[Rfam]
Nucleotides: 107
Stems, first nucleotide, its partner, number of pairs: 001106004006101001011096002014094003018090002021087001025083004029069007049059004
Number, partner (000 for none) and nucleotide at each position: 001106u002105u003104a004103g005000c006101u007000c008000a009000u010000g011096c012095u013000u014094u015093a016092g017000u018090u019089a020000a021087u022000g023000a024000a025083c026082u027081g028080u029069u030068u031067u032066g033065u034064c035063a036000c037000u038000c039000u040000c041000u042000g043000a044000c045000a046000u047000a048000g049059a050058a051057c052056a053000a054000u055000u056052u057051g058050u059049u060000c061000u062000u063035u064034g065033a066032c067031a068030g069029a070000g071000a072000g073000u074000g075000a076000c077000a078000a079000a080028a081027c082026a083025g084000g085000a086000g087021a088000c089019u090018a091000u092016c093015u094014a095012g096011g097000a098000g099000c100000g101006a102000a103004u104003u105002a106001a107000g